[Rfam]
RNA sequence: GGGCAUAAACGCGCACAUAAUAAGCGGAUCGGACCCGGGGGCGGUACCCGGCGGCUCCACCAAAUACCCGGCGUUGGCGGGAACAUGGGGCCGAAAUAGGAUCGACGAACGUGUAAAGGUGUAGCUUUGUCCCGGUGAGAUACCACCGUUAUCGGUUCAUUAAGCAUAGUUGCCAACGACAAUCAUGCUCCGGUUGCAGUUGCUGCGUAA
Numbered sequence: 001g002g003g004c005a006u007a008a009a010c011g012c013g014c015a016c017a018u019a020a021u022a023a024g025c026g027g028a029u030c031g032g033a034c035c036c037g038g039g040g041g042c043g044g045u046a047c048c049c050g051g052c053g054g055c056u057c058c059a060c061c062a063a064a065u066a067c068c069c070g071g072c073g074u075u076g077g078c079g080g081g082a083a084c085a086u087g088g089g090g091c092c093g094a095a096a097u098a099g100g101a102u103c104g105a106c107g108a109a110c111g112u113g114u115a116a117a118g119g120u121g122u123a124g125c126u127u128u129g130u131c132c133c134g135g136u137g138a139g140a141u142a143c144c145a146c147c148g149u150u151a152u153c154g155g156u157u158c159a160u161u162a163a164g165c166a167u168a169g170u171u172g173c174c175a176a177c178g179a180c181a182a183u184c185a186u187g188c189u190c191c192g193g194u195u196g197c198a199g200u201u202g203c204u205g206c207g208u209a210a
Stems, first nucleotide, its partner, number of pairs: 001132005013122004025111002029108003035051005052093007133148004
Dot-bracket structure: (((((.......((((........((..(((...(((((.......)))))(((((((............................)))))))............))).)).......)))).....)))))((((........))))..............................................................